A member of the RNA family "Small nucleolar RNA snoR104" from Chenopodium quinoa, 117 nucleotides long. Rfam links the family to the GO terms RNA processing and nucleolus. Pairs were carried over by alignment from the consensus structure, which was predicted with WAR. The family has 8 seed sequences and 612 matches in Rfam 15.1.

RNA sequence: GGAUGGCAUCUGUAAGCUAGAGAUGUUACUCGAUACAGUCUUCCUAUAAAAAUUCUGUUCUUUCCUUUUCACAGUUCUCUAGUGUAGUCUGUGAAUCUCAAACUGACAGAAACAGUA
Number, nucleotide and partner (000 for none) at each position: 001g031002g030003a000004u000005g027006g026007c025008a024009u023010c022011u021012g000013u000014a000015a000016g000017c000018u000019a000020g000021a011022g010023a009024u008025g007026u006027u005028a000029c000030u002031c001032g000033a000034u000035a000036c000037a000038g000039u000040c000041u000042u000043c000044c000045u000046a000047u000048a000049a000050a000051a000052a000053u000054u110055c109056u108057g000058u000059u000060c000061u000062u000063u000064c000065c000066u000067u000068u095069u094070c093071a092072c091073a090074g089075u000076u087077c000078u000079c000080u000081a000082g000083u000084g000085u000086a000087g076088u000089c074090u073091g072092u071093g070094a069095a068096u000097c000098u000099c000100a000101a000102a000103c000104u000105g000106a000107c000108a056109g055110a054111a000112a000113c000114a000115g000116u000117a000